[Rfam]
RNA sequence: CUUUUUCCACAAACACCAGAUCUGUGCCCAGUGAUCCCUUCAGCUCCGGCUGUAAGGUUGACUGCUGAGGCAGUUCGAUCGUACUAUGGAGCCAUCAACCUUCACCGGUAAUUCAUGAUGUCAAUCAUCCGAUCGACAGGUCUUAGAAGGAUCGGUCCUCACGAAGCCUGAAUUCGCUGUCACAGGUUUGAGUUCGGUGGACGAGUGUACUGAAGGCGUUACAUUCCACUUCGUUACCGAUGGCCGUUGGCCUAUGAGGUUAGGGACAAACCGUAACUUGCCUACAUAU
Number, nucleotide and partner (000 for none) at each position: 001c000002u000003u000004u000005u000006u000007c000008c000009a000010c000011a000012a000013a000014c000015a000016c000017c000018a143019g142020a141021u140022c139023u138024g137025u136026g071027c070028c069029c067030a066031g065032u000033g063034a000035u061036c060037c057038c056039u055040u054041c000042a051043g050044c049045u000046c000047c000048g000049g044050c043051u042052g000053u000054a040055a039056g038057g037058u000059u000060g036061a035062c000063u033064g000065c031066u030067g029068a000069g028070g027071c026072a000073g000074u000075u000076c000077g000078a000079u000080c135081g134082u000083a000084c131085u000086a000087u123088g122089g121090a000091g119092c000093c117094a116095u115096c000097a000098a000099c000100c000101u000102u000103c000104a000105c000106c000107g000108g000109u000110a000111a000112u000113u000114c000115a095116u094117g093118a000119u091120g000121u089122c088123a087124a000125u000126c000127a000128u000129c000130c000131g084132a000133u000134c081135g080136a025137c024138a023139g022140g021141u020142c019143u018144u000145a000146g000147a000148a000149g000150g000151a000152u000153c000154g000155g210156u209157c000158c000159u000160c000161a000162c000163g000164a000165a000166g198167c197168c196169u000170g195171a194172a193173u192174u191175c190176g187177c186178u000179g000180u000181c000182a000183c000184a000185g000186g177187u176188u000189u000190g175191a174192g173193u172194u171195c170196g168197g167198u166199g000200g000201a000202c000203g000204a000205g000206u000207g000208u000209a156210c155211u000212g000213a000214a000215g282216g281217c280218g277219u276220u275221a274222c273223a000224u000225u000226c000227c000228a000229c000230u000231u266232c265233g000234u263235u262236a260237c259238c258239g000240a000241u000242g252243g251244c250245c249246g000247u000248u000249g245250g244251c243252c242253u000254a000255u000256g000257a000258g238259g237260u236261u000262a235263g234264g000265g232266a231267c000268a000269a000270a000271c000272c000273g222274u221275a220276a219277c218278u000279u000280g217281c216282c215283u000284a000285c000286a000287u000288a000289u000
Rfam assigns this 289-nucleotide RNA sequence from Mollisiaceae sp. DMI_Dod_QoI to the family "A. fumigatus sRNA Afu_309". It scores 148 bits against the family's covariance model. For this family Rfam cites "Small ncRNA transcriptome analysis from Aspergillus fumigatus suggests a novel mechanism for regulation of protein synthesis" (Jochl et al., Nucleic Acids Res, 2008). By type it is a small RNA. The family has 10 seed sequences and 663 matches in Rfam 15.1.